[Rfam]
RNA: Plastid-psbA-1 3UTR RNA
Organism: Lagerstroemia villosa
RNA sequence: GUUGAAGCUCCAUCUACAAAUGGAUAACACUUUGGUGUUAGUGUAAGUGUUUAUGAGUUUUUGAUUUGAAGUGAGAGUAAAGGAGCAAUAACCUCUUGUUCUAUUAAGAGUGUUGAUUAUUGCUCCUUUA
Numbered sequence: 001g002u003u004g005a006a007g008c009u010c011c012a013u014c015u016a017c018a019a020a021u022g023g024a025u026a027a028c029a030c031u032u033u034g035g036u037g038u039u040a041g042u043g044u045a046a047g048u049g050u051u052u053a054u055g056a057g058u059u060u061u062u063g064a065u066u067u068g069a070a071g072u073g074a075g076a077g078u079a080a081a082g083g084a085g086c087a088a089u090a091a092c093c094u095c096u097u098g099u100u101c102u103a104u105u106a107a108g109a110g111u112g113u114u115g116a117u118u119a120u121u122g123c124u125c126c127u128u129u130a
Stems, first nucleotide, its partner, number of pairs: 009024005079129013093115001094109004